Rfam assigns this 69-nucleotide RNA from Labedaea rhizosphaerae to the family "ASpks TB sRNA". The family's RNA type in Rfam is antisense RNA. Rfam 15.1 lists 9,052 matches to the family in 683 species. The source organism's lineage runs through Bacteria, Bacillati, Actinomycetota, Pseudonocardiales and Labedaea.
RNA sequence: CUUGAUCGAGCCCAGCCACAGCGGAUCGUCGCGGUCCUGGCCGUACGUGGCCAGCAAUGCUUGCGCCUC
Numbered sequence: 001c002u003u004g005a006u007c008g009a010g011c012c013c014a015g016c017c018a019c020a021g022c023g024g025a026u027c028g029u030c031g032c033g034g035u036c037c038u039g040g041c042c043g044u045a046c047g048u049g050g051c052c053a054g055c056a057a058u059g060c061u062u063g064c065g066c067c068u069c
Stems, first nucleotide, its partner, number of pairs: 014026001016024002032059002037054003041050003